[Rfam]
RNA sequence: CAGGCGGGCACCGAAAAGCCUCAAAAAAGAGUAGGAA
Number, nucleotide and partner (000 for none) at each position: 001c000002a021003g020004g019005c018006g000007g000008g000009c000010a000011c035012c034013g000014a000015a000016a000017a000018g005019c004020c003021u002022c000023a000024a000025a000026a000027a000028a000029g000030a000031g000032u000033a000034g012035g011036a000037a000

A member of the RNA family "DUF805b RNA" from Emticicia sp. TH156, 37 nucleotides long. The family's RNA type in Rfam is cis-regulatory element. The organism belongs to Emticicia, within Bacteria. A search with the family's covariance model found it, with a score of 41 bits.